[Rfam]
RNA sequence: GUGCAUCCAGCAGGAAUUGAACCUACGAAUUUGGCCAAUAUGAGUUGGCGCUUUAACCUUCAGCCAUGGAGGC
Numbered sequence: 001g002u003g004c005a006u007c008c009a010g011c012a013g014g015a016a017u018u019g020a021a022c023c024u025a026c027g028a029a030u031u032u033g034g035c036c037a038a039u040a041u042g043a044g045u046u047g048g049c050g051c052u053u054u055a056a057c058c059u060u061c062a063g064c065c066a067u068g069g070a071g072g073c
Stems, first nucleotide, its partner, number of pairs: 003073002006070003010026001012024003040067003044064005050058001

Plastid-ycf2 5UTR RNA: a 73-nucleotide RNA from Musa balbisiana. For this family Rfam cites "Retrograde signaling in plants: A critical review focusing on the GUN pathway and beyond" (Richter et al., Plant Commun, 2023). From the family's description: Plastid ycf2 is a non-coding RNA (ncRNA) recognised in plastids. Lineage of the source: Eukaryota > Streptophyta > Spermatophyta > Magnoliopsida > Musa. By type it is a cis-regulatory element.